Record summary:
The family of this 73-nucleotide sequence from Eulacestoma nigropectus is "Small nucleolar RNA SNORD63". Rfam classes the family as a C/D-box small nucleolar RNA. Gene Ontology terms of the family: nucleolus and RNA processing. Rfam 15.1 lists 795 matches to the family in 549 species. It scores 47 bits against the family's covariance model. The base pairs follow the family's consensus structure, which was predicted with PFOLD.
RNA sequence: GUGCCAUGAUGUCACCUGUCAACACAUCAUUCUGAAGGAGAAUUGUGUGGAGCACUUCCGGGUUCUGAGCACC
Numbered sequence: 001g002u003g004c005c006a007u008g009a010u011g012u013c014a015c016c017u018g019u020c021a022a023c024a025c026a027u028c029a030u031u032c033u034g035a036a037g038g039a040g041a042a043u044u045g046u047g048u049g050g051a052g053c054a055c056u057u058c059c060g061g062g063u064u065c066u067g068a069g070c071a072c073c
Stems, first nucleotide, its partner, number of pairs: 001072004
A reference for the family is Galardi et al. (2002), "Purified box C/D snoRNPs are able to reproduce site-specific 2'-O-methylation of target RNA in vitro", Mol Cell Biol. Rfam describes the family as follows. snoRNA U63 is found in both humans and mice.